Annotation: The family of this 59-nucleotide RNA sequence from Nostocales cyanobacterium HT-58-2 is "Nitrogen stress-induced RNA 1". It scores 53 bits against the family's covariance model. Taxonomically the source falls in Nostocales (Bacteria, Bacillati, Cyanobacteriota, Cyanophyceae).
[Rfam]
RNA sequence: UGGUAGAUGCACCUUGAUCUUAAACUCCCAUGUAGGCUAACUCCUAUGGGAGUUUUUUU
Numbered sequence: 001u002g003g004u005a006g007a008u009g010c011a012c013c014u015u016g017a018u019c020u021u022a023a024a025c026u027c028c029c030a031u032g033u034a035g036g037c038u039a040a041c042u043c044c045u046a047u048g049g050g051a052g053u054u055u056u057u058u059u
Base pairs, nucleotide, nucleotide: 002013003012004011026051027050028049029048030047033046034045035044036043

The family's RNA type in Rfam is small RNA. A reference for the family is Ionescu et al. (2010), "Heterocyst-specific transcription of NsiR1, a non-coding RNA encoded in a tandem array of direct repeats in cyanobacteria", J Mol Biol.